[Rfam]
RNA: Streptomyces sRNA 4677
Organism: Streptomyces sp. SID5785
RNA sequence: CCCUCGGCCGCCCCCGCCGUCCAAAGAAAAAGCACGUUGGGGAAACAACCCACCAACCACCCCCGACCCCCGUGGCGGGCCCGCACGGCCGCCAUCACCCUCACGAGUGGAAAAUGCCAACUGGGCUUGCAUCGAGCACAGUUCGCCAUCCACGCUCUCGGCACGACAACCGAAAAAACUUCGGCCCCCGCCGGGACUGCCAUCCCACUGCGAGGGCCUGACCACCCAGGAAGUAGACCCUUCCCG
Numbered sequence: 001c002c003c004u005c006g007g008c009c010g011c012c013c014c015c016g017c018c019g020u021c022c023a024a025a026g027a028a029a030a031a032g033c034a035c036g037u038u039g040g041g042g043a044a045a046c047a048a049c050c051c052a053c054c055a056a057c058c059a060c061c062c063c064c065g066a067c068c069c070c071c072g073u074g075g076c077g078g079g080c081c082c083g084c085a086c087g088g089c090c091g092c093c094a095u096c097a098c099c100c101u102c103a104c105g106a107g108u109g110g111a112a113a114a115u116g117c118c119a120a121c122u123g124g125g126c127u128u129g130c131a132u133c134g135a136g137c138a139c140a141g142u143u144c145g146c147c148a149u150c151c152a153c154g155c156u157c158u159c160g161g162c163a164c165g166a167c168a169a170c171c172g173a174a175a176a177a178a179c180u181u182c183g184g185c186c187c188c189c190g191c192c193g194g195g196a197c198u199g200c201c202a203u204c205c206c207a208c209u210g211c212g213a214g215g216g217c218c219u220g221a222c223c224a225c226c227c228a229g230g231a232a233g234u235a236g237a238c239c240c241u242u243c244c245c246g
Stems, first nucleotide, its partner, number of pairs: 007226001010223001016089004095110004100105001125162003129159001183218005189212003193206004229244005